[Rfam]
Background
A member of the RNA family "Y RNA" from Ochotona princeps, 94 nucleotides long. The family's consensus secondary structure is taken from published work. Lineage of the source: Eukaryota > Opisthokonta > Theria > Glires > Ochotona. By type it is a non-coding RNA gene.
RNA sequence: GGCUGGUCCGAUGGUAGUGGGUUAUCAGAACUUAUUAACAUUAGCUCACUAAAGUUGGUAUACAACCCCCCACUGCUAAAUUUGACUGGCUUUU
Dot-bracket structure: .(((((((.((...(((((((.....(..(.........................)..).........))))))...)...)))))))))....